This 102-nucleotide sequence from Toxoplasma gondii belongs to the Rfam family "LDH1 5'UTR". About the family: the translational repression of lactate dehydrogenase 1 (LDH1) is mediated through its 5'UTR. A small 16 nucleotide long regulatory RNA hairpin is essential for the repression. NCBI's taxonomy places the organism under Eukaryota, Sar, Sarcocystidae, Toxoplasma, Toxoplasma gondii. Rfam's curators put it in the seed alignment.
[Rfam]
RNA sequence: ACGCUCGACCAGAGUUUUUUGAUUUUCGAUUUCCAAACGCGAUUCAUUCCAAUCCGCCUUGUAGCAAACUAACCGGUGCACUUUUGCACGUGUACGCAAGAC
Dot-bracket structure: ....((((..(((.(.....).))))))).........(((...........(..((......))..).......(((((....))))).....))).....
Numbered sequence: 001a002c003g004c005u006c007g008a009c010c011a012g013a014g015u016u017u018u019u020u021g022a023u024u025u026u027c028g029a030u031u032u033c034c035a036a037a038c039g040c041g042a043u044u045c046a047u048u049c050c051a052a053u054c055c056g057c058c059u060u061g062u063a064g065c066a067a068a069c070u071a072a073c074c075g076g077u078g079c080a081c082u083u084u085u086g087c088a089c090g091u092g093u094a095c096g097c098a099a100g101a102c
Stems, first nucleotide, its partner, number of pairs: 005029004011025003015021001039097003053068001056065002076089005